[Rfam]
RNA sequence: ACAAAAAUAAAAGCGCCAGAACUUAAAUCACGACCGGAAAAAAGGAUUUAAGUUGACGAGGACAGGGUUUAUCGAAGUUUCGGCGGAUGCCCUGCGGUGUAUCACCACCGAGAAAGAACCUACAAAACCUCCAAGUGAUUGGUGGGACAAAUAGGGGUCAGGUGAUAUGA
Numbered sequence: 001a002c003a004a005a006a007a008u009a010a011a012a013g014c015g016c017c018a019g020a021a022c023u024u025a026a027a028u029c030a031c032g033a034c035c036g037g038a039a040a041a042a043a044g045g046a047u048u049u050a051a052g053u054u055g056a057c058g059a060g061g062a063c064a065g066g067g068u069u070u071a072u073c074g075a076a077g078u079u080u081c082g083g084c085g086g087a088u089g090c091c092c093u094g095c096g097g098u099g100u101a102u103c104a105c106c107a108c109c110g111a112g113a114a115a116g117a118a119c120c121u122a123c124a125a126a127a128c129c130u131c132c133a134a135g136u137g138a139u140u141g142g143u144g145g146g147a148c149a150a151a152u153a154g155g156g157g158u159c160a161g162g163u164g165a166u167a168u169g170a
Base pairs, nucleotide, nucleotide: 020054021053022052023051024050025049026048027047029045063094064093065092066091067090072083073082074081075080095110096109097108098107099106116159117158119156120155121154128145129144131142132141133140134139

The record is a 170-nucleotide RNA from Marinisporobacter balticus, which matches "glmS glucosamine-6-phosphate activated ribozyme aptamer" in Rfam. It scores 118 bits against the family's covariance model. Gene Ontology terms of the family: regulation of gene expression and catalytic activity.